Notes
This 120-nucleotide RNA sequence from Syntrophotalea acetylenivorans belongs to the Rfam family "Molybdenum/Tungsten riboswitch aptamer (Moco RNA motif)". A search with the family's covariance model found it, with a score of 69 bits. The organism belongs to Syntrophotalea, within Bacteria. On this family, see Regulski et al., Mol Microbiol 2008: "in molybdenum cofactor and tungsten cofactor metabolism". The family's consensus secondary structure is taken from published work.
RNA sequence: ACAUAAAGUCCACUCCGAUUCAAGGCCGGCUAAGGCCAUAGCUAAGCCACCUUGAACGAUGGGUGCCCCCGGAAACGGUGGCGCCUCCCGUAUUUGGAAAGGAGUCGACCUGCGAACGCG
Numbered sequence: 001a002c003a004u005a006a007a008g009u010c011c012a013c014u015c016c017g018a019u020u021c022a023a024g025g026c027c028g029g030c031u032a033a034g035g036c037c038a039u040a041g042c043u044a045a046g047c048c049a050c051c052u053u054g055a056a057c058g059a060u061g062g063g064u065g066c067c068c069c070c071g072g073a074a075a076c077g078g079u080g081g082c083g084c085c086u087c088c089c090g091u092a093u094u095u096g097g098a099a100a101g102g103a104g105u106c107g108a109c110c111u112g113c114g115a116a117c118g119c120g
Stems, first nucleotide, its partner, number of pairs: 006111001012105005019056007028048003034043003061086007069078003087097002